Source information
The family of this 161-nucleotide RNA from Salvelinus namaycush is "Small nucleolar RNA SNORA14". The family's consensus secondary structure was predicted with RNAfold. About the family: ACA14 is a member of the H/ACA class of snoRNA that guide the sites of modification of uridines to pseudouridines. Rfam 15.1 lists 848 matches to the family in 633 species.
[Rfam]
RNA sequence: UAACAUUUCAAAAUGUUUUUGGUGGCGGGAAUGGGCUUCCAUAAAUUUUGAAUGGCUAUAAAUUCUAGUGGAAACCUAAAAGCAUAGCUUUUUGCUUCUCACACAAGCUUAAGUAGCUAAGAAUUUUCGUGGCGUUCCUUUAUGUCAUUUCUAUGACAGAU
Dot-bracket structure: ...(((...((.....((.(((.(((........))).))).))..))...)))...((...((.(((..........((((.(..((..(.....................................)..))..).)))).........))).))...))
Numbered sequence: 001u002a003a004c005a006u007u008u009c010a011a012a013a014u015g016u017u018u019u020u021g022g023u024g025g026c027g028g029g030a031a032u033g034g035g036c037u038u039c040c041a042u043a044a045a046u047u048u049u050g051a052a053u054g055g056c057u058a059u060a061a062a063u064u065c066u067a068g069u070g071g072a073a074a075c076c077u078a079a080a081a082g083c084a085u086a087g088c089u090u091u092u093u094g095c096u097u098c099u100c101a102c103a104c105a106a107g108c109u110u111a112a113g114u115a116g117c118u119a120a121g122a123a124u125u126u127u128c129g130u131g132g133c134g135u136u137c138c139u140u141u142a143u144g145u146c147a148u149u150u151c152u153a154u155g156a157c158a159g160a161u
Stems, first nucleotide, its partner, number of pairs: 004054003010048002017044002020041003024037003058161002063156002066153003079141004084136001087133002091129001